The family of this 135-nucleotide RNA from Otolemur garnettii is "Small nucleolar RNA SNORA12". For this family Rfam cites "A novel experimental approach for systematic identification of box H/ACA snoRNAs from eukaryotes" (Gu et al., Nucleic Acids Res, 2005). The organism belongs to Otolemur, within Eukaryota. Rfam classes the family as an H/ACA-box small nucleolar RNA. Its family is annotated with RNA processing and nucleolus in the Gene Ontology.
RNA sequence: UUUUGUGGUGGUUUUCUUUCUGGCACAUUCGUUAAAUUUUCAAGUGGGCCUAACUCUGCCACAUAUAUAGGAGCUGGCAAAGACUUGAUGACAAAGAGAUCUGCCUUUCCUCCAUCAGAGAUGGCUCCCACAGUG
Numbered sequence: 001u002u003u004u005g006u007g008g009u010g011g012u013u014u015u016c017u018u019u020c021u022g023g024c025a026c027a028u029u030c031g032u033u034a035a036a037u038u039u040u041c042a043a044g045u046g047g048g049c050c051u052a053a054c055u056c057u058g059c060c061a062c063a064u065a066u067a068u069a070g071g072a073g074c075u076g077g078c079a080a081a082g083a084c085u086u087g088a089u090g091a092c093a094a095a096g097a098g099a100u101c102u103g104c105c106u107u108u109c110c111u112c113c114a115u116c117a118g119a120g121a122u123g124g125c126u127c128c129c130a131c132a133g134u135g
Stems, first nucleotide, its partner, number of pairs: 005062007022050003026046004031041001070128006076085002